[Rfam]
RNA sequence: CUCCCGCGUCGCGACUGGCGUGUUCAGGUGGAAUCGACCACCGGGGAGCGACUGUCCGGCGGCGUCGCGCGCCUGGGUACCGCCG
Numbered sequence: 001c002u003c004c005c006g007c008g009u010c011g012c013g014a015c016u017g018g019c020g021u022g023u024u025c026a027g028g029u030g031g032a033a034u035c036g037a038c039c040a041c042c043g044g045g046g047a048g049c050g051a052c053u054g055u056c057c058g059g060c061g062g063c064g065u066c067g068c069g070c071g072c073c074u075g076g077g078u079a080c081c082g083c084c085g
Stems, first nucleotide, its partner, number of pairs: 008052005015045002017073005028041004062080001064078003
Annotation:
Rfam assigns this 85-nucleotide RNA from Kutzneria viridogrisea to the family "ZMP/ZTP riboswitch aptamer (pfl RNA motif)". Pairs were carried over by alignment from the consensus structure, which is taken from published work. Taxonomically the source falls in Kutzneria viridogrisea (Bacteria, Bacillati, Actinomycetota, Pseudonocardiales).